Rfam assigns this 127-nucleotide sequence from Lynx pardinus to the family "Small nucleolar RNA SNORA40".
Taxonomically the source falls in Lynx (Eukaryota, Metazoa, Euteleostomi, Feliformia).
Gene Ontology terms of the family: nucleolus and RNA processing.
The family's consensus secondary structure was predicted with RNAalifold.
About the family: The snoRNA ACA 40 belongs to the H/ACA family of snoRNAs and guides the pseudouridylation of 28S rRNA subunit at position U4565. NB This family has a high threshold value to exclude a large number of closely related sequences that do not appear to have conserved H and ACA boxes, and may be pseudogenes.
It is annotated as an H/ACA-box small nucleolar RNA.

RNA sequence: CACACUUGUGCUUGUUUUUGUUCAGUUUUUUGGACAAAGACUUAGACAAGUACAGAAAAUGAAUCCUCUUUUGCAACCCGAAACUCAUGGCUCAGUAUGAGUUUUGAUACAUGUAAGAAGUAAUAAG
Numbered sequence: 001c002a003c004a005c006u007u008g009u010g011c012u013u014g015u016u017u018u019u020g021u022u023c024a025g026u027u028u029u030u031u032g033g034a035c036a037a038a039g040a041c042u043u044a045g046a047c048a049a050g051u052a053c054a055g056a057a058a059a060u061g062a063a064u065c066c067u068c069u070u071u072u073g074c075a076a077c078c079c080g081a082a083a084c085u086c087a088u089g090g091c092u093c094a095g096u097a098u099g100a101g102u103u104u105u106g107a108u109a110c111a112u113g114u115a116a117g118a119a120g121u122a123a124u125a126a127g
Base pairs, nucleotide, nucleotide: 004051005050006049007048008047009046014041015040016039017038018037019036020035021034026032063124064123067120069118070117071116072115073114079106080105081104082103083102084101085100086099087098088097